[Rfam]
RNA sequence: ACCCAGCCAGUGGGUGACGUAGGUCAUGACUGGAUGGCACUAGACGGUGAGUGUGCCAAUUACAAUAACCCCCGUCACCU
Numbered sequence: 001a002c003c004c005a006g007c008c009a010g011u012g013g014g015u016g017a018c019g020u021a022g023g024u025c026a027u028g029a030c031u032g033g034a035u036g037g038c039a040c041u042a043g044a045c046g047g048u049g050a051g052u053g054u055g056c057c058a059a060u061u062a063c064a065a066u067a068a069c070c071c072c073c074g075u076c077a078c079c080u
Stems, first nucleotide, its partner, number of pairs: 001015004007033005016025003035058005043076005

The family of this 80-nucleotide sequence is "Proteo-phage-1 RNA". Rfam classes the family as a small RNA. The sequence is in the family's curated seed alignment. Pairs were carried over by alignment from the consensus structure, which is taken from published work.